[Rfam]
RNA sequence: CUGGAGGACUAAGAAAGUGGAGCUAGUGACACUAUUGACUCCACUGAUACUAUCCUCCUAAAUUAAAUGGUGGAGGAACAAGGCCUGCCUGUGAGAGAAAGUCAGGGCCUACUUCGUCUACCUACAAGG
Numbered sequence: 001c002u003g004g005a006g007g008a009c010u011a012a013g014a015a016a017g018u019g020g021a022g023c024u025a026g027u028g029a030c031a032c033u034a035u036u037g038a039c040u041c042c043a044c045u046g047a048u049a050c051u052a053u054c055c056u057c058c059u060a061a062a063u064u065a066a067a068u069g070g071u072g073g074a075g076g077a078a079c080a081a082g083g084c085c086u087g088c089c090u091g092u093g094a095g096a097g098a099a100a101g102u103c104a105g106g107g108c109c110u111a112c113u114u115c116g117u118c119u120a121c122c123u124a125c126a127a128g129g
Stems, first nucleotide, its partner, number of pairs: 003058006010049002018043005024037005069122006076115001081110003084106004
The family of this 129-nucleotide RNA from Amazona aestiva is "Small Cajal body specific RNA 15". The family's consensus secondary structure was predicted with RNAfold. About the family: scaRNAs are a specific class of small nuclear RNAs which localise to the Cajal bodies and guide the modification of RNA polymerase II transcribed spliceosomal RNAs U1, U2, U4, U5 and U12. ACA45 belongs to the H/ACA box class of guide RNAs as it has the predicted hairpin-hinge-hairpin-tail structure, the conserved H/ACA-box motifs and is found associated with GAR1. The source organism's lineage runs through Eukaryota, Dipnotetrapodomorpha, Amniota, Coelurosauria and Amazona. The match comes from Rfam's covariance-model search (91 bits).